The record is a 95-nucleotide RNA sequence from Alteripontixanthobacter maritimus, which matches "Bacterial small signal recognition particle RNA" in Rfam. Rfam classes the family as a non-coding RNA gene. NCBI's taxonomy places the organism under Bacteria, Alphaproteobacteria, Sphingomonadales, Erythrobacteraceae, Alteripontixanthobacter. The family's consensus secondary structure is taken from published work.
[Rfam]
RNA sequence: GCGGGAGUCGGGUGGACGUUUGCGUUCGCUAACCUGGUCAGGUCCGGAAGGAAGCAGCCAUCCCGAUUUGCGGCGGGUCGCUCGGCUCCUAGAUA
Numbered sequence: 001g002c003g004g005g006a007g008u009c010g011g012g013u014g015g016a017c018g019u020u021u022g023c024g025u026u027c028g029c030u031a032a033c034c035u036g037g038u039c040a041g042g043u044c045c046g047g048a049a050g051g052a053a054g055c056a057g058c059c060a061u062c063c064c065g066a067u068u069u070g071c072g073g074c075g076g077g078u079c080g081c082u083c084g085g086c087u088c089c090u091a092g093a094u095a
Base pairs, nucleotide, nucleotide: 004089005088006087007086008085009084010083011082012081013080014079017075018074019073020072024068026066027065028064035060036059037058038057043052044051045050